[Rfam]
RNA sequence: GGAAGGCAAUCGUAUCGGGUGGUGCGGCUGGGCUUCAAACCCAGUUGGGGACGUCAGCCGUUCCCGGGACAGUUCGACUCUGUCUGCCUUCC
Number, nucleotide and partner (000 for none) at each position: 001g092002g091003a090004a089005g088006g087007c086008a085009a000010u000011c026012g025013u024014a023015u022016c021017g000018g000019g000020u000021g016022g015023u014024g013025c012026g011027g045028c044029u043030g042031g041032g040033c000034u000035u000036c000037a000038a000039a000040c032041c031042c030043a029044g028045u027046u000047g065048g064049g063050g062051a061052c000053g000054u000055c000056a000057g000058c000059c000060g000061u051062u050063c049064c048065c047066g000067g000068g000069a083070c082071a081072g080073u000074u000075c000076g000077a000078c000079u000080c072081u071082g070083u069084c000085u008086g007087c006088c005089u004090u003091c002092c001
This 92-nucleotide RNA sequence from Paraburkholderia sacchari belongs to the Rfam family "Selenocysteine transfer RNA".
It scores 73 bits against the family's covariance model.
Clan: tRNA clan.
Pairs were carried over by alignment from the consensus structure, which is taken from published work.